[Rfam]
RNA sequence: ACCCUUCCAAAACCCCUGCUGACGUUCUAUAUUAACUCUGCCGGUUCGCCGGCUAUGGCGAUAAACGGGUUGUGGAAUAAGCAUAACGGACCCGGGGGCAGUGCCCGGCGCCUCCACCAAUUUCUCUUUUGGGGGCGAAACAGGAUCGACGUGUGUAGUAAAGACAACACUUUUGCUCGGCAUGGUACCACCGAUAUCGGACCAUUCCUACAAGUGCCAACGAUAACGUUGAACUUGCCGCUGCCGCCUAAUAGGCGUUAAGCGCGGCCCGGGGGGCGCCGGGCAACAGAAGCCCCCCACU
Numbered sequence: 001a002c003c004c005u006u007c008c009a010a011a012a013c014c015c016c017u018g019c020u021g022a023c024g025u026u027c028u029a030u031a032u033u034a035a036c037u038c039u040g041c042c043g044g045u046u047c048g049c050c051g052g053c054u055a056u057g058g059c060g061a062u063a064a065a066c067g068g069g070u071u072g073u074g075g076a077a078u079a080a081g082c083a084u085a086a087c088g089g090a091c092c093c094g095g096g097g098g099c100a101g102u103g104c105c106c107g108g109c110g111c112c113u114c115c116a117c118c119a120a121u122u123u124c125u126c127u128u129u130u131g132g133g134g135g136c137g138a139a140a141c142a143g144g145a146u147c148g149a150c151g152u153g154u155g156u157a158g159u160a161a162a163g164a165c166a167a168c169a170c171u172u173u174u175g176c177u178c179g180g181c182a183u184g185g186u187a188c189c190a191c192c193g194a195u196a197u198c199g200g201a202c203c204a205u206u207c208c209u210a211c212a213a214g215u216g217c218c219a220a221c222g223a224u225a226a227c228g229u230u231g232a233a234c235u236u237g238c239c240g241c242u243g244c245c246g247c248c249u250a251a252u253a254g255g256c257g258u259u260a261a262g263c264g265c266g267g268c269c270c271g272g273g274g275g276g277c278g279c280c281g282g283g284c285a286a287c288a289g290a291a292g293c294c295c296c297c298c299a300c301u
Stems, first nucleotide, its partner, number of pairs: 040053005057177005067170001069168005082155003086152003092108005109137007178193003183204003188200002265281004271298006